[Rfam]
RNA sequence: UGUCUCCUCCACCCUCCUUUGGUGGAUUUAGCCUCCGGCUCGCAAGAACCGGAGGCUUUUUUCU
Numbered sequence: 001u002g003u004c005u006c007c008u009c010c011a012c013c014c015u016c017c018u019u020u021g022g023u024g025g026a027u028u029u030a031g032c033c034u035c036c037g038g039c040u041c042g043c044a045a046g047a048a049c050c051g052g053a054g055g056c057u058u059u060u061u062u063c064u
Stems, first nucleotide, its partner, number of pairs: 008026006030057008
RNA: Betaproteobacteria toxic small RNA